A member of the RNA family "small nucleolar RNA snoR114" from Cannabis sativa, 88 nucleotides long. A reference for the family is Chen and Wu (2009), "Mining small RNA sequencing data: a new approach to identify small nucleolar RNAs in Arabidopsis", Nucleic Acids Res. Pairs were carried over by alignment from the consensus structure, which was predicted with RNAalifold. It scores 63 bits against the family's covariance model.
RNA sequence: GAGCUGUGACGAUUACUGGCGCCUUUAGAGAUUGGGGGAUCUAUCUCACUCGUCUGAUUAAAGGACGAAAUAUGGUGCUUCCGAGCUC
Numbered sequence: 001g002a003g004c005u006g007u008g009a010c011g012a013u014u015a016c017u018g019g020c021g022c023c024u025u026u027a028g029a030g031a032u033u034g035g036g037g038g039a040u041c042u043a044u045c046u047c048a049c050u051c052g053u054c055u056g057a058u059u060a061a062a063g064g065a066c067g068a069a070a071u072a073u074g075g076u077g078c079u080u081c082c083g084a085g086c087u088c
Stems, first nucleotide, its partner, number of pairs: 001088004